[Rfam]
RNA sequence: AUAUCACAAGAUGAUGGAGUUCACCAUAAUCGCAGAAAUGCUAAUGACUCCUACAAGAUG
Numbered sequence: 001a002u003a004u005c006a007c008a009a010g011a012u013g014a015u016g017g018a019g020u021u022c023a024c025c026a027u028a029a030u031c032g033c034a035g036a037a038a039u040g041c042u043a044a045u046g047a048c049u050c051c052u053a054c055a056a057g058a059u060g
Base pairs, nucleotide, nucleotide: 010025012023013022016051017050018049019048020047021046032041033040034039
RNA: Fluoride riboswitch aptamer (crcB RNA motif)
Organism: Clostridium argentinense